[Rfam]
RNA sequence: CCGCGGCCCGGAUGCGAGCGGAAAUCCUUUUUGGGAGGCCGAGCGCAGUCGAGGCUUCACAAAAAGAUUGCAGCGGGUCAGCCGGAAAUGUC
Numbered sequence: 001c002c003g004c005g006g007c008c009c010g011g012a013u014g015c016g017a018g019c020g021g022a023a024a025u026c027c028u029u030u031u032u033g034g035g036a037g038g039c040c041g042a043g044c045g046c047a048g049u050c051g052a053g054g055c056u057u058c059a060c061a062a063a064a065a066g067a068u069u070g071c072a073g074c075g076g077g078u079c080a081g082c083c084g085g086a087a088a089u090g091u092c
Base pairs, nucleotide, nucleotide: 009084010083011082013080014079018074019073023069024068025067026066029064030063031062032061033060035058036057037056038055039054040053
Dot-bracket structure: ........(((.((...((...((((..(((((.((((((............)))))).))))).))))...))....)).)))........
The family of this 92-nucleotide RNA sequence from Flavobacterium agri is "Flavo-1 RNA".